Rfam assigns this 232-nucleotide RNA from Propionispora vibrioides to the family "T-box leader". Rfam links the family to the GO term tRNA binding. The family has 48 seed sequences and 19,395 matches in Rfam 15.1. By type it is a cis-regulatory leader.
RNA sequence: ACCAUGGCGAUGAACGGGAAUAGUAGAAGUGUGAAAGGGUUUCAGAGAGCCGGAGGUUGGUGCGAUCCGGUACAUUUCAGACUUUGAACUCGCCUGUGAGCUGCAGCCCGAUGACUAGGUAGGGUGUGCCGGAGUUCCACCGUUACAGGGAUAGAUGGUGUUGGCCGUCGAACAAGCGGGUUCUUUAUUGAACCAAUUAGAGUGGUACCACGAGUUUACCCCCGUCUCUAUC
Numbered sequence: 001a002c003c004a005u006g007g008c009g010a011u012g013a014a015c016g017g018g019a020a021u022a023g024u025a026g027a028a029g030u031g032u033g034a035a036a037g038g039g040u041u042u043c044a045g046a047g048a049g050c051c052g053g054a055g056g057u058u059g060g061u062g063c064g065a066u067c068c069g070g071u072a073c074a075u076u077u078c079a080g081a082c083u084u085u086g087a088a089c090u091c092g093c094c095u096g097u098g099a100g101c102u103g104c105a106g107c108c109c110g111a112u113g114a115c116u117a118g119g120u121a122g123g124g125u126g127u128g129c130c131g132g133a134g135u136u137c138c139a140c141c142g143u144u145a146c147a148g149g150g151a152u153a154g155a156u157g158g159u160g161u162u163g164g165c166c167g168u169c170g171a172a173c174a175a176g177c178g179g180g181u182u183c184u185u186u187a188u189u190g191a192a193c194c195a196a197u198u199a200g201a202g203u204g205g206u207a208c209c210a211c212g213a214g215u216u217u218a219c220c221c222c223c224g225u226c227u228c229u230a231u232c
Stems, first nucleotide, its partner, number of pairs: 007101002015096004026085005039073002049071006104128002106125004130142003179194005199229004210225003214221001